The family of this 89-nucleotide RNA sequence from Dioscorea zingiberensis is "Small nucleolar RNA U54". For this family Rfam cites "The high diversity of snoRNAs in plants: identification and comparative study of 120 snoRNA genes from Oryza sativa" (Chen et al., Nucleic Acids Res, 2003). Rfam classes the family as a C/D-box small nucleolar RNA. Rfam describes the family as follows. U54 is a C/D box small nucleolar RNA, which acts as a methylation guide for 18S ribosomal RNA in plants. It scores 58 bits against the family's covariance model. Rfam 15.1 lists 614 matches to the family in 206 species. The family is grouped with related families in Rfam's "U54 clan".
RNA sequence: AACUCGAUGAUCGAUGCCAAACAUGUUGGCAAUAUACGCUAUUCUGAAAGUUAAAUGAAACAACUGAAAACAUAUAUUUUAUGAGAGUU
Numbered sequence: 001a002a003c004u005c006g007a008u009g010a011u012c013g014a015u016g017c018c019a020a021a022c023a024u025g026u027u028g029g030c031a032a033u034a035u036a037c038g039c040u041a042u043u044c045u046g047a048a049a050g051u052u053a054a055a056u057g058a059a060a061c062a063a064c065u066g067a068a069a070a071c072a073u074a075u076a077u078u079u080u081a082u083g084a085g086a087g088u089u
Stems, first nucleotide, its partner, number of pairs: 001089005